[Rfam]
A member of the RNA family "Small nucleolar RNA SNORD58" from Lepisosteus oculatus, 71 nucleotides long. It is annotated as a C/D-box small nucleolar RNA. Clan: SNORD58 clan. Gene Ontology terms of the family: RNA processing and nucleolus.
RNA sequence: UUGCCGUGAUGAUCAAACUUAGGAGACCUUUGGAAUUCAAUAUGACAAAACCAAAUUAUAAUCUGAGCAAU
Numbered sequence: 001u002u003g004c005c006g007u008g009a010u011g012a013u014c015a016a017a018c019u020u021a022g023g024a025g026a027c028c029u030u031u032g033g034a035a036u037u038c039a040a041u042a043u044g045a046c047a048a049a050a051c052c053a054a055a056u057u058a059u060a061a062u063c064u065g066a067g068c069a070a071u
Stems, first nucleotide, its partner, number of pairs: 001070004